Shown here is an 80-nucleotide RNA from Echinops telfairi, a member of the family "Small nucleolar RNA U2-19". Rfam links the family to the GO terms RNA processing and nucleolus. NCBI's taxonomy places the organism under Eukaryota, Opisthokonta, Eumetazoa, Craniata, Echinops. The sequence is in the family's curated seed alignment. The literature on the family includes a 2004 paper in Curr Biol by Tycowski et al., "Guide RNAs with 5' Caps and Novel Box C/D snoRNA-like Domains for Modification of snRNAs in Metazoa". By type it is a C/D-box small nucleolar RNA. Rfam 15.1 lists 1,147 matches to the family in 531 species.
RNA sequence: GAUCAAUGAUGAAAAUAGCCAAAUCUGAGCACCAGAGGACCAUCCGGUCUAUCUGAUGCAUGAUCUUCAUCAUUCUGGGA
Numbered sequence: 001g002a003u004c005a006a007u008g009a010u011g012a013a014a015a016u017a018g019c020c021a022a023a024u025c026u027g028a029g030c031a032c033c034a035g036a037g038g039a040c041c042a043u044c045c046g047g048u049c050u051a052u053c054u055g056a057u058g059c060a061u062g063a064u065c066u067u068c069a070u071c072a073u074u075c076u077g078g079g080a
Stems, first nucleotide, its partner, number of pairs: 029059003033055001037050004